Source information:
Rfam assigns this 201-nucleotide sequence from Dichanthelium oligosanthes to the family "MIR1435 microRNA precursor family". Rfam 15.1 lists 1,765 matches to the family in 31 species. A search with the family's covariance model found it, with a score of 108 bits.
[Rfam]
RNA sequence: UAGCUUUGUCCUAAGUCAAACUUAUCUAAUUUUGACCAAAUUUACAGGAAAAAUAUAUUAACAUCUAUGGUAUCAAACAAAUGCACAACCAAUAUAUAUUACAUGGUGUAUCAAAUAAAUGUAGUUUGAUGUUGUAGAUAUUUGUACAUUCUUCUAUAAACUUGGUGAAAUCUAGAGAAGUUUGACUUAGGACAAAGUUAG
Numbered sequence: 001u002a003g004c005u006u007u008g009u010c011c012u013a014a015g016u017c018a019a020a021c022u023u024a025u026c027u028a029a030u031u032u033u034g035a036c037c038a039a040a041u042u043u044a045c046a047g048g049a050a051a052a053a054u055a056u057a058u059u060a061a062c063a064u065c066u067a068u069g070g071u072a073u074c075a076a077a078c079a080a081a082u083g084c085a086c087a088a089c090c091a092a093u094a095u096a097u098a099u100u101a102c103a104u105g106g107u108g109u110a111u112c113a114a115a116u117a118a119a120u121g122u123a124g125u126u127u128g129a130u131g132u133u134g135u136a137g138a139u140a141u142u143u144g145u146a147c148a149u150u151c152u153u154c155u156a157u158a159a160a161c162u163u164g165g166u167g168a169a170a171u172c173u174a175g176a177g178a179a180g181u182u183u184g185a186c187u188u189a190g191g192a193c194a195a196a197g198u199u200a201g
Stems, first nucleotide, its partner, number of pairs: 005196005011190013025176002031170003035166001043156002046153005056146003060142002063139007073129006
Dot-bracket structure: ....(((((.(((((((((((((.((....(((.(.......((.(((((.....(((.((.(((((((...((((((.............................................))))))...))))))).)).)))..))))).)).........).)))....)).))))))))))))).))))).....